[Rfam]
RNA sequence: GGUCAUGAGCGCCAGCGUCCAAGCCCCAGCUAGCUGGCCGGCAACCCUCCACCGCGGUGGGGUGCCCUGGGUGAAGACCAGGCUCCUCGCGACCGGCGAGCGAGCAAGCGCGGGUC
Numbered sequence: 001g002g003u004c005a006u007g008a009g010c011g012c013c014a015g016c017g018u019c020c021a022a023g024c025c026c027c028a029g030c031u032a033g034c035u036g037g038c039c040g041g042c043a044a045c046c047c048u049c050c051a052c053c054g055c056g057g058u059g060g061g062g063u064g065c066c067c068u069g070g071g072u073g074a075a076g077a078c079c080a081g082g083c084u085c086c087u088c089g090c091g092a093c094c095g096g097c098g099a100g101c102g103a104g105c106a107a108g109c110g111c112g113g114g115u116c
Base pairs, nucleotide, nucleotide: 001079002078003077004076009039011038012037013036014035015034016033022031023030040066041065042064045062046061047060049057050056082105083104084103085102086100087099088098089097090096
The record is a 116-nucleotide RNA sequence from Kocuria dechangensis, which matches "SAM (S-adenosyl methionine) riboswitch aptamer" in Rfam. Pairs were carried over by alignment from the consensus structure, which is taken from published work. Lineage of the source: Bacteria > Bacillati > Actinomycetota > Micrococcaceae > Kocuria.